[Rfam]
The family of this 95-nucleotide sequence from Flavonifractor sp. An135 is "Glycine riboswitch aptamer". Rfam describes the family as follows. This family represents the bacterial glycine riboswitch. The organism belongs to Flavonifractor, within Bacteria.
RNA sequence: GAGCGUGGCUCUGGAGAAGCCCGCCGUGUGCGGGGGCCGAAGGUGUAGGGAGGAGGACCUCCCGAUCUCUCAGGCAAAAGGACAGAGUGGACGCC
Numbered sequence: 001g002a003g004c005g006u007g008g009c010u011c012u013g014g015a016g017a018a019g020c021c022c023g024c025c026g027u028g029u030g031c032g033g034g035g036g037c038c039g040a041a042g043g044u045g046u047a048g049g050g051a052g053g054a055g056g057a058c059c060u061c062c063c064g065a066u067c068u069c070u071c072a073g074g075c076a077a078a079a080g081g082a083c084a085g086a087g088u089g090g091a092c093g094c095c
Stems, first nucleotide, its partner, number of pairs: 006090001008088006020034004036075003039071002043069001045067001049062002
Dot-bracket structure: .....(.((((((......((((.......)))).(((((..(.(...((..........))....).))).))).......)))))).).....